[Rfam]
RNA: mir-34 microRNA precursor family
RNA sequence: UCCUUAUUGGCAGUGAUUUUUGCUGGGCAAGUAUAUCCUCUCCUUGCCCAGCAAAAAUCACUGCCAAUAAGGA
Numbered sequence: 001u002c003c004u005u006a007u008u009g010g011c012a013g014u015g016a017u018u019u020u021u022g023c024u025g026g027g028c029a030a031g032u033a034u035a036u037c038c039u040c041u042c043c044u045u046g047c048c049c050a051g052c053a054a055a056a057a058u059c060a061c062u063g064c065c066a067a068u069a070a071g072g073a
Stems, first nucleotide, its partner, number of pairs: 002072005009065002012062011024050008